Shown here is a 355-nucleotide sequence from Cobetia sp. UCD-24C, a member of the family "transfer-messenger RNA". The family's consensus secondary structure is taken from published work. Rfam describes the family as follows. Bacterial tmRNA, also known as 10Sa RNA or SsrA, is named for its dual tRNA and mRNA-like properties. Its role is to liberate the mRNA from a stalled ribosome. To accomplish this part of the tmRNA is used as a reading frame that ends in a translation stop signal. Gene Ontology term of the family: RNA catabolic process. By type it is a non-coding RNA gene.
RNA sequence: GGGGGCGUUCUGGCAUUCGACGCUGGUGGCAAACCCUGAGGUGCAUGCCGAGAUCGUAACGUAUCUCGUAAAUAAAACGUUGCAAAUAUAUAGUCGCAAACGACGACAACUACGCUCUAGCUGCAUAAGCUGCUCAUGAUACCGUUGCGCCUGUUCAAGGUGGAUUGAGAACGAGCCCGUAUAAACAGGAUCGUCUUGGCCGACGUCUCUAAGGUCGAGAUUAAAACUCAGAGAAUCGCAUUGCUGUAGCCUGUUCAUUGGCGGCAGUAGUGUUAAAUCAAAUAAUGAAACUAAGCAUGUAGAGCCGAAGGCGGAGUGCCGGCGGACACGGGUUCGACUCCCGUCGCCUCCACCA
Number, nucleotide and partner (000 for none) at each position: 001g351002g350003g349004g348005g347006c346007g345008u000009u000010c000011u000012g000013g000014c000015a000016u000017u000018c000019g000020a000021c324022g323023c322024u321025g320026g319027u318028g317029g000030c000031a000032a000033a000034c000035c311036c310037u309038g000039a000040g306041g305042u304043g000044c299045a298046u297047g296048c295049c068050g067051a066052g065053a064054u000055c000056g083057u082058a081059a080060c079061g078062u077063a000064u053065c052066u051067c050068g049069u000070a000071a000072a000073u000074a000075a000076a000077a062078c061079g060080u059081u058082g057083c056084a000085a000086a000087u000088a000089u000090a000091u000092a000093g000094u000095c000096g000097c000098a000099a000100a000101c000102g000103a000104c000105g000106a000107c000108a000109a000110c000111u000112a000113c000114g000115c000116u000117c000118u000119a134120g133121c132122u000123g130124c129125a000126u000127a000128a000129g124130c123131u000132g121133c120134u119135c000136a000137u174138g000139a000140u162141a161142c160143c159144g000145u158146u157147g156148c000149g000150c189151c188152u187153g186154u185155u184156c147157a146158a145159g143160g142161u141162g140163g000164a000165u000166u000167g000168a000169g000170a000171a000172c000173g000174a137175g000176c000177c000178c000179g000180u000181a000182u000183a000184a155185a154186c153187a152188g151189g150190a000191u000192c000193g221194u220195c219196u218197u217198g216199g215200c214201c213202g000203a000204c000205g236206u235207c000208u233209c000210u231211a000212a000213g201214g200215u199216c198217g197218a196219g195220a194221u193222u000223a000224a000225a000226a000227c000228u000229c000230a000231g210232a000233g208234a000235a206236u205237c000238g273239c272240a271241u270242u269243g268244c267245u266246g265247u264248a000249g262250c261251c260252u000253g291254u290255u289256c000257a000258u284259u000260g251261g250262c249263g000264g247265c246266a245267g244268u243269a242270g241271u240272g239273u238274u000275a000276a000277a000278u000279c000280a000281a000282a000283u000284a258285a000286u000287g000288a000289a255290a254291c253292u000293a000294a000295g048296c047297a046298u045299g044300u000301a000302g000303a000304g042305c041306c040307g000308a000309a037310g036311g035312c000313g000314g000315a000316g000317u028318g027319c026320c025321g024322g023323c022324g021325g000326a000327c000328a344329c343330g342331g341332g340333u000334u000335c000336g000337a000338c000339u000340c332341c331342c330343g329344u328345c007346g006347c005348c004349u003350c002351c001352a000353c000354c000355a000